[Rfam]
The record is a 106-nucleotide RNA from Exiguobacterium artemiae, which matches "SAM riboswitch aptamer (S box leader)" in Rfam. A reference for the family is Montange and Batey (2006), "Structure of the S-adenosylmethionine riboswitch regulatory mRNA element", Nature. Clan: SAM clan. Pairs were carried over by alignment from the consensus structure, which is taken from published work. It is one of the family's seed sequences.
RNA sequence: CUCUUAUCGAGAGUGGUGGAGGGACUGGCCCGAUGAAACCCGGCAACCGCGGAAUUUAUUCCGAAGUGGUGCUAAUUCCAGCAGACGAUUGUCUGCAAGAUGAGAG
Numbered sequence: 001c002u003c004u005u006a007u008c009g010a011g012a013g014u015g016g017u018g019g020a021g022g023g024a025c026u027g028g029c030c031c032g033a034u035g036a037a038a039c040c041c042g043g044c045a046a047c048c049g050c051g052g053a054a055u056u057u058a059u060u061c062c063g064a065a066g067u068g069g070u071g072c073u074a075a076u077u078c079c080a081g082c083a084g085a086c087g088a089u090u091g092u093c094u095g096c097a098a099g100a101u102g103a104g105a106g
Base pairs, nucleotide, nucleotide: 001106002105003104004103005102006101007100008099013041015040016039017038021031022030023029025081026080027079028078042073043072044071045070047069048068051061052060077098082095083094084093085092086091